[Rfam]
RNA sequence: UCAGCUCGUGGUGUGAACUGUCCGGUUAAGUCCGGUAAGUCUAUGAGUGAUACAAUGACACAAAAGCUAAGACUAACGCCUGAUACAAGCUACAUGCUUGGAAUAUACAGGUGCAACAGGGGAAAGCGGAUUGAACUGUCCUCAAGCGACGAUGAUAUGAUUGCAAGGUUUGCCAAGCUCGCAAUGGACGAGUUCGGCAUUGAGCCUAACAAGAUAAUCAUCGACAGCGAGGGCAAGGUCAAGAAAACUUUCUUCUACAACUCCACGAUGGUGAAAAGGUUUGAAAAGGCGCUUGAAAGAAGAGUAAACAUAUUCAAGUACGCCAAUGCAUAUUCCGGAAAUUACUUCGCGGCGCUGUUCGACUGCAACGGAGGCAAGGAUGCUAAAGGCAUCUUUCUGAAGGGCAUGGACAGCGUUGACGAGGUAGUACUCGAAAGGCUCAACAUACACACGGACAAAAGGGGCAGCAAGGAUUACCUUGCAAACCAGUCCGCAUUCAUAACGCUAAUAAAAGAUUACAGCCUUAGAAUUGCGAGUAUUAUUCAUUGACCCGGAAACGAGCGAGAC
Numbered sequence: 001u002c003a004g005c006u007c008g009u010g011g012u013g014u015g016a017a018c019u020g021u022c023c024g025g026u027u028a029a030g031u032c033c034g035g036u037a038a039g040u041c042u043a044u045g046a047g048u049g050a051u052a053c054a055a056u057g058a059c060a061c062a063a064a065a066g067c068u069a070a071g072a073c074u075a076a077c078g079c080c081u082g083a084u085a086c087a088a089g090c091u092a093c094a095u096g097c098u099u100g101g102a103a104u105a106u107a108c109a110g111g112u113g114c115a116a117c118a119g120g121g122g123a124a125a126g127c128g129g130a131u132u133g134a135a136c137u138g139u140c141c142u143c144a145a146g147c148g149a150c151g152a153u154g155a156u157a158u159g160a161u162u163g164c165a166a167g168g169u170u171u172g173c174c175a176a177g178c179u180c181g182c183a184a185u186g187g188a189c190g191a192g193u194u195c196g197g198c199a200u201u202g203a204g205c206c207u208a209a210c211a212a213g214a215u216a217a218u219c220a221u222c223g224a225c226a227g228c229g230a231g232g233g234c235a236a237g238g239u240c241a242a243g244a245a246a247a248c249u250u251u252c253u254u255c256u257a258c259a260a261c262u263c264c265a266c267g268a269u270g271g272u273g274a275a276a277a278g279g280u281u282u283g284a285a286a287a288g289g290c291g292c293u294u295g296a297a298a299g300a301a302g303a304g305u306a307a308a309c310a311u312a313u314u315c316a317a318g319u320a321c322g323c324c325a326a327u328g329c330a331u332a333u334u335c336c337g338g339a340a341a342u343u344a345c346u347u348c349g350c351g352g353c354g355c356u357g358u359u360c361g362a363c364u365g366c367a368a369c370g371g372a373g374g375c376a377a378g379g380a381u382g383c384u385a386a387a388g389g390c391a392u393c394u395u396u397c398u399g400a401a402g403g404g405c406a407u408g409g410a411c412a413g414c415g416u417u418g419a420c421g422a423g424g425u426a427g428u429a430c431u432c433g434a435a436a437g438g439c440u441c442a443a444c445a446u447a448c449a450c451a452c453g454g455a456c457a458a459a460a461g462g463g464g465c466a467g468c469a470a471g472g473a474u475u476a477c478c479u480u481g482c483a484a485a486c487c488a489g490u491c492c493g494c495a496u497u498c499a500u501a502a503c504g505c506u507a508a509u510a511a512a513a514g515a516u517u518a519c520a521g522c523c524u525u526a527g528a529a530u531u532g533c534g535a536g537u538a539u540u541a542u543u544c545a546u547u548g549a550c551c552c553g554g555a556a557a558c559g560a561g562c563g564a565g566a567c
Base pairs, nucleotide, nucleotide: 004562005561006560007559008558009557010019011018012017022554023553024552025551
Rfam assigns this 567-nucleotide part of an RNA from Candidatus Micrarchaeum sp. AZ1 to the family "Archaeal small subunit ribosomal RNA". The family is grouped with related families in Rfam's "SSU clan". Gene Ontology terms of the family: ribosome and structural constituent of ribosome. The base pairs follow the family's consensus structure, which is taken from published work. Lineage of the source: Archaea > Nanobdellati > Microcaldota > Candidatus Micrarchaeales > Candidatus Micrarchaeum.